mir-499 microRNA precursor family: an 80-nucleotide RNA sequence from Pelodiscus sinensis. It scores 87 bits against the family's covariance model. The family has 31 seed sequences and 710 matches in Rfam 15.1. NCBI's taxonomy places the organism under Eukaryota, Euteleostomi, Sarcopterygii, Archelosauria, Pelodiscus. The literature on the family includes a 2008 paper in Genome Res by Murchison et al., "Conservation of small RNA pathways in platypus".
RNA sequence: GGGAGAGCGGCGGUUAAGACUUGCAGUGAUGUUUAGCUAAUGUAUUACAUGAACAUCACGGUGAGUCUGUGCUACCUCUC
Number, nucleotide and partner (000 for none) at each position: 001g000002g000003g000004a000005g000006a000007g000008c000009g000010g000011c000012g000013g000014u000015u000016a000017a068018g067019a066020c065021u064022u063023g062024c000025a000026g059027u058028g057029a056030u055031g054032u053033u052034u051035a050036g000037c000038u000039a000040a000041u000042g000043u000044a000045u000046u000047a000048c000049a000050u035051g034052a033053a032054c031055a030056u029057c028058a027059c026060g000061g000062u023063g022064a021065g020066u019067c018068u017069g000070u000071g000072c000073u000074a000075c000076c000077u000078c000079u000080c000